RNA sequence: UUAGGCGCCGGACCGCUACUCCAUUCCCAUAGCGGACGGCAGCUGUCAAAAAGGAGGAAAAAUCCGCCGAGCCGGCGGUGCGGCAGUGUGGAGACCUGUCGUAAAGCCCCGGGAGUUUCGCUCUCCCGGCGGCGAGGGGACAGCAAGCGGAUGCUCUGUCCCUGCGGCUCUUCAUUUAUGGCU
Dot-bracket structure: ......((((..((((((...........)))))).)))).......................[[[[.((((((]]]]((((((((.((....))))))))))..((((((((...........))))).)))..((((((((..(((....))))))))))).)))))).............